This 382-nucleotide RNA from Corynebacterium heidelbergense belongs to the Rfam family "transfer-messenger RNA".
On this family, see Williams and Bartel, RNA 1996: "Phylogenetic analysis of tmRNA secondary structure".
Taxonomically the source falls in Corynebacterium (Bacteria, Bacillati, Mycobacteriales, Corynebacteriaceae).
It scores 134 bits against the family's covariance model.
About the family: Bacterial tmRNA, also known as 10Sa RNA or SsrA, is named for its dual tRNA and mRNA-like properties. Its role is to liberate the mRNA from a stalled ribosome.
RNA sequence: GGGGUCGACUAGGUUUCGACUUCGUGCAUUGAGCCAGGGGAAGCGUGCCGGUGCAGGCAGAGGACCACCGAUUUUAAGCGUCGCUGCAAACCAAUAAGCGCCGAGACCUCUCAGCGCGACUACGCCCUCGCUGCCUAAUCCAGCGAGCGCGUGUCUGUCGGCCUAGGUUCGUUCCCGACCUAGUCACCGGCAUCGACUCAGGGGACUUGCUGCACGGCCCCGCCGCCCGGGCCGUGUGGGACACCUUAGGGUGGCUGGGCCCGUCGUCCGGGCUAGUUCGUGAGAUCCGGAGGGCCGAGCAGGGACACUAAGACGGACUGUGCACGGAGAAGCCCUGGCAAGGUCGCGAAGGACCCGGGUUCAAUUCCCGGCGGCUCCACUG
Numbered sequence: 001g002g003g004g005u006c007g008a009c010u011a012g013g014u015u016u017c018g019a020c021u022u023c024g025u026g027c028a029u030u031g032a033g034c035c036a037g038g039g040g041a042a043g044c045g046u047g048c049c050g051g052u053g054c055a056g057g058c059a060g061a062g063g064a065c066c067a068c069c070g071a072u073u074u075u076a077a078g079c080g081u082c083g084c085u086g087c088a089a090a091c092c093a094a095u096a097a098g099c100g101c102c103g104a105g106a107c108c109u110c111u112c113a114g115c116g117c118g119a120c121u122a123c124g125c126c127c128u129c130g131c132u133g134c135c136u137a138a139u140c141c142a143g144c145g146a147g148c149g150c151g152u153g154u155c156u157g158u159c160g161g162c163c164u165a166g167g168u169u170c171g172u173u174c175c176c177g178a179c180c181u182a183g184u185c186a187c188c189g190g191c192a193u194c195g196a197c198u199c200a201g202g203g204g205a206c207u208u209g210c211u212g213c214a215c216g217g218c219c220c221c222g223c224c225g226c227c228c229g230g231g232c233c234g235u236g237u238g239g240g241a242c243a244c245c246u247u248a249g250g251g252u253g254g255c256u257g258g259g260c261c262c263g264u265c266g267u268c269c270g271g272g273c274u275a276g277u278u279c280g281u282g283a284g285a286u287c288c289g290g291a292g293g294g295c296c297g298a299g300c301a302g303g304g305a306c307a308c309u310a311a312g313a314c315g316g317a318c319u320g321u322g323c324a325c326g327g328a329g330a331a332g333c334c335c336u337g338g339c340a341a342g343g344u345c346g347c348g349a350a351g352g353a354c355c356c357g358g359g360u361u362c363a364a365u366u367c368c369c370g371g372c373g374g375c376u377c378c379a380c381u382g
Base pairs, nucleotide, nucleotide: 001378002377003376004375005374006373007372020351021350022349023348024347025346026345029342033339034338035337036336037335038334039333044326045325046324047323048322053065057087058086059085060084062082127147128146129145130144131143132142133141156192157191158190159189160188161187163183164182165181166180167179168178169177171206172205173204174203175202176201210239211238212237213236214235215234216233217232218231222255223254224253225252226251258296259295260294261293262292264290265289266288273284274283276318277317278316279315280314281313355371356370357369358368359367